[Rfam]
Nucleotides: 058
Stems, first nucleotide, its partner, number of pairs: 001050005006022006
Number, partner (000 for none) and nucleotide at each position: 001050u002049g003048a004047c005046c006022u007021a008020a009019c010018u011017g012000u013000a014000u015000u016000a017011c018010a019009g020008u021007u022006a023000u024000a025000c026000g027000a028000a029000g030000g031000c032000c033000a034000u035000a036000c037000g038000g039000a040000c041000a042000g043000c044000c045000g046005g047004g048003u049002c050001a051000a052000a053000u054000g055000c056000c057000g058000a
Streptococcus sRNA SpF59 (ldcC RNA): a 58-nucleotide sequence.
It is one of the family's seed sequences.